Source information
The record is a 278-nucleotide RNA from Roseimaritima ulvae, which matches "Group II catalytic intron D1-D4-6" in Rfam. The organism belongs to Roseimaritima, within Bacteria. Rfam links the family to the GO term Group II intron splicing. Rfam's curators write: Group II introns are found in rRNA, tRNA and mRNA of organelles in fungi, plants and protists, and also in mRNA in bacteria.

[Rfam]
RNA sequence: CGAAUCCCGCCUGGGUAACUGCUAGCCACAGGCCCAGUAUUGAGGUUUGCAGUCAGUAGUAAGGUAUAAGGCGGUUCGCCGCCGAAAUCACUGAUUGAUGCGUAACCACAAAAGGUAGUGAGGGUGAAAGGUAUCGGCUGGCUGCCGAACCCUGAACGAGAUUGAGCUCCGAAAACAUGGUUUCUGUUGGAUACUGCCCACGGUCUGUGCAUGCCCGAAGGCAACACUUGCGGUCGCGCCUUGGCGAGCGACUGCGAGAGUCCCGGAGUCGAAGAUCC
Numbered sequence: 001c002g003a004a005u006c007c008c009g010c011c012u013g014g015g016u017a018a019c020u021g022c023u024a025g026c027c028a029c030a031g032g033c034c035c036a037g038u039a040u041u042g043a044g045g046u047u048u049g050c051a052g053u054c055a056g057u058a059g060u061a062a063g064g065u066a067u068a069a070g071g072c073g074g075u076u077c078g079c080c081g082c083c084g085a086a087a088u089c090a091c092u093g094a095u096u097g098a099u100g101c102g103u104a105a106c107c108a109c110a111a112a113a114g115g116u117a118g119u120g121a122g123g124g125u126g127a128a129a130g131g132u133a134u135c136g137g138c139u140g141g142c143u144g145c146c147g148a149a150c151c152c153u154g155a156a157c158g159a160g161a162u163u164g165a166g167c168u169c170c171g172a173a174a175a176c177a178u179g180g181u182u183u184c185u186g187u188u189g190g191a192u193a194c195u196g197c198c199c200a201c202g203g204u205c206u207g208u209g210c211a212u213g214c215c216c217g218a219a220g221g222c223a224a225c226a227c228u229u230g231c232g233g234u235c236g237c238g239c240c241u242u243g244g245c246g247a248g249c250g251a252c253u254g255c256g257a258g259a260g261u262c263c264c265g266g267a268g269u270c271g272a273a274g275a276u277c278c
Stems, first nucleotide, its partner, number of pairs: 012036004019031003023247001025245002038114001040112002044107004048102002050097008163272001164270001166269006189263003194260002196222003202215003227258011
The family has 174 seed sequences and 1,617 matches in Rfam 15.1.